[Rfam]
RNA sequence: AUAUUUUUGCGGGGGGACUGCUUGCAGUUGAGAAGGUUAAACCUGACCCAUUGAACCUGUCAGUUAACACUGGUGAAGGGAAGCAGUCUUUUAUUUUGA
Numbered sequence: 001a002u003a004u005u006u007u008u009g010c011g012g013g014g015g016g017a018c019u020g021c022u023u024g025c026a027g028u029u030g031a032g033a034a035g036g037u038u039a040a041a042c043c044u045g046a047c048c049c050a051u052u053g054a055a056c057c058u059g060u061c062a063g064u065u066a067a068c069a070c071u072g073g074u075g076a077a078g079g080g081a082a083g084c085a086g087u088c089u090u091u092u093a094u095u096u097u098g099a
Stems, first nucleotide, its partner, number of pairs: 007086004012049003016044001017028004035043003056079003060073004
The family of this 99-nucleotide RNA sequence from Sebaldella termitidis is "TPP riboswitch aptamer (THI element)". It scores 55 bits against the family's covariance model. The organism belongs to Sebaldella termitidis, within Bacteria.